[Rfam]
RNA sequence: CAUUCCGAGGAGCGUUGCAGCGGCCCCCAUUCUGUUGACAGACAUGGCGAGGACGUGAGGCUCGGAACCCUACUUUGCAACGACGCUCAUCCACU
Numbered sequence: 001c002a003u004u005c006c007g008a009g010g011a012g013c014g015u016u017g018c019a020g021c022g023g024c025c026c027c028c029a030u031u032c033u034g035u036u037g038a039c040a041g042a043c044a045u046g047g048c049g050a051g052g053a054c055g056u057g058a059g060g061c062u063c064g065g066a067a068c069c070c071u072a073c074u075u076u077g078c079a080a081c082g083a084c085g086c087u088c089a090u091c092c093a094c095u
Stems, first nucleotide, its partner, number of pairs: 003067006021055002024052002
RNA: SAH (S-adenosyl-L-homocysteine) riboswitch aptamer